[Rfam]
RNA sequence: ACCCCCGGUAUUAUUGCUGUUAUGGGUUGCAAUCGAGCUUAGCGUUGUUCAUUUUUUUCCACAACACGCCCGUAAAAAAUAAAACACGCCCUGCUCAAACCCGCAGUUUGCAUUACGUUAGGUGCCUAACAUUUGCCCUAAAGUGCGGCGAAAAUGGCUUUUUGGCGCCCUUUUAGGGCAA
Number, nucleotide and partner (000 for none) at each position: 001a000002c000003c000004c000005c000006c000007g000008g000009u000010a000011u000012u000013a000014u000015u000016g000017c000018u000019g000020u000021u000022a000023u000024g102025g101026g100027u099028u098029g000030c000031a000032a000033u000034c000035g094036a000037g091038c000039u000040u000041a000042g089043c088044g087045u086046u000047g085048u084049u083050c000051a000052u000053u079054u078055u077056u076057u075058u074059c000060c072061a000062c000063a000064a000065c000066a000067c000068g000069c000070c000071c000072g060073u000074a058075a057076a056077a055078a054079a053080u000081a000082a000083a049084a048085c047086a045087c044088g043089c042090c000091c037092u000093g000094c035095u000096c000097a000098a028099a027100c026101c025102c024103g000104c000105a000106g000107u000108u000109u000110g000111c000112a000113u000114u000115a000116c000117g000118u000119u000120a000121g000122g000123u000124g000125c000126c000127u000128a000129a000130c000131a000132u000133u000134u000135g000136c000137c000138c000139u000140a000141a000142a000143g000144u000145g000146c000147g000148g000149c000150g000151a000152a000153a000154a000155u000156g000157g000158c000159u000160u000161u000162u000163u181164g000165g179166c178167g000168c176169c000170c000171u000172u000173u000174u000175a000176g168177g000178g166179c165180a000181a163